[Rfam]
RNA sequence: CUGAAUAGAUAGCCGAAUUUCCGAAUUUGAGGGCAACCUCAUAACGAAAACGGGGGAACCAACCAAUCAUCGUAUACAAGCUUCAUUGUAUUCGAAGAUCCCGGGGUGAAUUCCAACCUCGCGUCUAGGCGCGAUGGAUAGGGCAGCCUGUUCGAGCCCGAACCCGACAGCUAACCUCGUAGGCUACGUAACGAACAGGA
Number, nucleotide and partner (000 for none) at each position: 001c000002u000003g000004a000005a000006u000007a000008g000009a000010u000011a185012g184013c183014c182015g000016a000017a000018u049019u048020u047021c000022c000023g000024a000025a000026u000027u000028u000029g000030a000031g000032g000033g000034c000035a000036a000037c000038c000039u000040c000041a000042u000043a000044a000045c000046g000047a020048a019049a018050a180051c179052g178053g177054g176055g175056g000057a000058a000059c000060c103061a000062a000063c000064c000065a000066a000067u000068c000069a000070u000071c000072g000073u000074a000075u000076a000077c000078a000079a000080g000081c000082u000083u000084c000085a000086u000087u000088g000089u000090a000091u000092u000093c000094g000095a000096a000097g000098a000099u000100c000101c000102c000103g060104g165105g164106g163107u000108g000109a000110a000111u000112u138113c137114c136115a135116a000117c000118c000119u000120c000121g000122c000123g000124u000125c000126u000127a000128g000129g000130c000131g000132c000133g000134a000135u115136g114137g113138a112139u000140a000141g159142g158143g157144c156145a000146g000147c000148c000149u000150g000151u000152u000153c000154g000155a000156g144157c143158c142159c141160g000161a000162a000163c106164c105165c104166g000167a000168c000169a000170g000171c000172u000173a000174a000175c055176c054177u053178c052179g051180u050181a000182g014183g013184c012185u011186a000187c000188g000189u000190a000191a000192c000193g000194a000195a000196c000197a000198g000199g000200a000
RNA: c-di-AMP riboswitch aptamer (ydaO/yuaA leader)